[Rfam]
RNA sequence: AUACUCUGGUUUCUCUUCAGAUCAUAUAAAUCUUUCACCUUUUACUAAAGAUUUCCGGGGAGAGGAACAAUUGAGUCUUAUGCCAAUUUUUUGAGGCCUUGUUCUGGCAAAGCU
Number, nucleotide and partner (000 for none) at each position: 001a000002u000003a076004c075005u074006c073007u000008g000009g068010u067011u066012u065013c064014u063015c062016u061017u060018c059019a000020g000021a000022u000023c000024a000025u000026a000027u000028a054029a053030a052031u051032c050033u049034u048035u047036c000037a000038c000039c000040u000041u000042u000043u000044a000045c000046u000047a035048a034049a033050g032051a031052u030053u029054u028055c000056c000057g000058g000059g018060g017061a016062g015063a014064g013065g012066a011067a010068c009069a000070a000071u000072u000073g006074a005075g004076u003077c000078u000079u000080a000081u000082g000083c000084c000085a000086a000087u000088u000089u000090u000091u000092u000093g000094a114095g000096g113097c112098c000099u110100u109101g108102u000103u000104c000105u000106g000107g000108c101109a100110a099111a000112g097113c096114u094
This 114-nucleotide sequence from Microcebus murinus belongs to the Rfam family "U5 spliceosomal RNA".
It scores 89 bits against the family's covariance model.
Its family is annotated with spliceosomal tri-snRNP complex assembly and U5 snRNP in the Gene Ontology.